[Rfam]
RNA: Small nucleolar RNA SNORD115
RNA sequence: GGGUCUAUGUUGAGAAACCUAUGUCCUGAAGAGAGGUGAUGACAUGAAAAUCAUGCUCAGGUUCCAGCUGCUGAGGCCC
Numbered sequence: 001g002g003g004u005c006u007a008u009g010u011u012g013a014g015a016a017a018c019c020u021a022u023g024u025c026c027u028g029a030a031g032a033g034a035g036g037u038g039a040u041g042a043c044a045u046g047a048a049a050a051u052c053a054u055g056c057u058c059a060g061g062u063u064c065c066a067g068c069u070g071c072u073g074a075g076g077c078c079c
Stems, first nucleotide, its partner, number of pairs: 001079004005073001008070002